[Rfam]
The record is a 178-nucleotide RNA from Upupa epops, which matches "Small Cajal body specific RNA 16" in Rfam. Rfam links the family to the GO terms RNA processing and nucleolus. The literature on the family includes a 2002 paper in EMBO J by Darzacq et al., "Cajal body-specific small nuclear RNAs: a novel class of 2'-O-methylation and pseudouridylation guide RNAs". It is annotated as a small Cajal body RNA.

RNA sequence: CAGGGCUGGGGAAGGGCUGUGGGUGGCAGGGCCAAUGGGCCCAGCCUCAUACCUGCCAGCCUCACCCAUGCCCAAGAUCAACUCCGCGUUAGGGCCUAUGCCAGGCCCAUCCUGUGCAGUAACAGGUGUGAGCAUUCAUGCAGCCUUUUGAUGGUCAUGUAUGAUACUGCAUACAACA
Numbered sequence: 001c002a003g004g005g006c007u008g009g010g011g012a013a014g015g016g017c018u019g020u021g022g023g024u025g026g027c028a029g030g031g032c033c034a035a036u037g038g039g040c041c042c043a044g045c046c047u048c049a050u051a052c053c054u055g056c057c058a059g060c061c062u063c064a065c066c067c068a069u070g071c072c073c074a075a076g077a078u079c080a081a082c083u084c085c086g087c088g089u090u091a092g093g094g095c096c097u098a099u100g101c102c103a104g105g106c107c108c109a110u111c112c113u114g115u116g117c118a119g120u121a122a123c124a125g126g127u128g129u130g131a132g133c134a135u136u137c138a139u140g141c142a143g144c145c146u147u148u149u150g151a152u153g154g155u156c157a158u159g160u161a162u163g164a165u166a167c168u169g170c171a172u173a174c175a176a177c178a
Stems, first nucleotide, its partner, number of pairs: 003073004008067003015061004019056006025046003029042001031040003084105002086101004113173009123163002129157003133153004140147001
Record summary
Taxonomically the source falls in Upupa (Eukaryota, Eumetazoa, Teleostomi, Euteleostomi). The family's consensus secondary structure was predicted with RNAfold.